[Rfam]
RNA sequence: AGCCAGUGAUGACAUUUUAAAAAAUACUUUCUGACACCUCGUAUGACUGCUGCAAGGCAGCUUCUGAUUACCUGUUCUGUCUGAGGCUC
Dot-bracket structure: ((((............................................(((((...))))).......................)))).